[Rfam]
RNA sequence: UUUGAAGCAUUUGGGGUUCCCAAUAGGAGCGUUCUCGUCACAACCCCUGUCAGAUUUUAUCUAAAUCUGCAAUCCUACU
Numbered sequence: 001u002u003u004g005a006a007g008c009a010u011u012u013g014g015g016g017u018u019c020c021c022a023a024u025a026g027g028a029g030c031g032u033u034c035u036c037g038u039c040a041c042a043a044c045c046c047c048u049g050u051c052a053g054a055u056u057u058u059a060u061c062u063a064a065a066u067c068u069g070c071a072a073u074c075c076u077a078c079u
Stems, first nucleotide, its partner, number of pairs: 013047006022079001024077005029041001031039001051069007